[Rfam]
Notes
Rfam assigns this 80-nucleotide RNA from Alligator sinensis to the family "Mammalian CPEB3 ribozyme".
RNA sequence: AGAGGUCCCAAGUUUGAGGCCAUAGCAGAAGUGGUCAUGGCAUGGUUCUGUCAAAUUCCAAUGAAUCUGCACAUUUUGCA
Numbered sequence: 001a002g003a004g005g006u007c008c009c010a011a012g013u014u015u016g017a018g019g020c021c022a023u024a025g026c027a028g029a030a031g032u033g034g035u036c037a038u039g040g041c042a043u044g045g046u047u048c049u050g051u052c053a054a055a056u057u058c059c060a061a062u063g064a065a066u067c068u069g070c071a072c073a074u075u076u077u078g079c080a
Stems, first nucleotide, its partner, number of pairs: 016048002019046003025079006031043003052069002055066004

The family has 14 seed sequences and 5,706 matches in Rfam 15.1.